[Rfam]
RNA sequence: UGGUAGAUGCACCCUGAUAACUAACUCCCCUAGCUAGCUAACACUGGCUGGGGGAUUUUUUU
Numbered sequence: 001u002g003g004u005a006g007a008u009g010c011a012c013c014c015u016g017a018u019a020a021c022u023a024a025c026u027c028c029c030c031u032a033g034c035u036a037g038c039u040a041a042c043a044c045u046g047g048c049u050g051g052g053g054g055a056u057u058u059u060u061u062u
Base pairs, nucleotide, nucleotide: 002013003012004011027054028053029052030051031050032049033048034047035046036045037044
Background
This 62-nucleotide sequence from Amazonocrinis nigriterrae belongs to the Rfam family "Nitrogen stress-induced RNA 1". For this family Rfam cites "Heterocyst-specific transcription of NsiR1, a non-coding RNA encoded in a tandem array of direct repeats in cyanobacteria" (Ionescu et al., J Mol Biol, 2010). It is annotated as a small RNA. The organism belongs to Amazonocrinis nigriterrae, within Bacteria. The family has 17 seed sequences and 962 matches in Rfam 15.1.